A member of the RNA family "Selenocysteine insertion sequence 1" from Helopsaltes ochotensis, 72 nucleotides long.
The incorporation of selenocysteine into a protein sequence is directed by an in-frame UGA codon (usually a stop codon) within the coding region of the mRNA. Selenoprotein mRNAs contain a conserved secondary structure in the 3' UTR that is required for the distinction of UGA stop from UGA selenocysteine. The selenocysteine insertion sequence (SECIS) is around 60 nt in length and adopts a hairpin structure which is sufficiently well-defined and conserved to act as a computational screen for selenoprotein genes.
RNA sequence: CACAGAGCAAUGACGGCAGAACCCCAAACCCCACAAAGUGUGGGGGGAGUUCUGCCUGACCCCCCUGCUGUG
Dot-bracket structure: (((((.........((((((((.(......................).))))))))...........)))))
It is annotated as a cis-regulatory element.